[Rfam]
RNA sequence: UUGGCAGUUCCCAGCUCUGAGAACUGAAUUCCAUGGACUGGUUCCAGUUCCGUGCGCUCAGUCCAUGGUAUCCAGUUCUCUAGCUUGGCUGCAUCAA
Numbered sequence: 001u002u003g004g005c006a007g008u009u010c011c012c013a014g015c016u017c018u019g020a021g022a023a024c025u026g027a028a029u030u031c032c033a034u035g036g037a038c039u040g041g042u043u044c045c046a047g048u049u050c051c052g053u054g055c056g057c058u059c060a061g062u063c064c065a066u067g068g069u070a071u072c073c074a075g076u077u078c079u080c081u082a083g084c085u086u087g088g089c090u091g092c093a094u095c096a097a
Stems, first nucleotide, its partner, number of pairs: 010088002013085003020079007035064007
mir-146 microRNA precursor family: a 97-nucleotide sequence from Colius striatus. The match comes from Rfam's covariance-model search (66 bits). A reference for the family is Lagos-Quintana et al. (2002), "Identification of tissue-specific microRNAs from mouse", Curr Biol.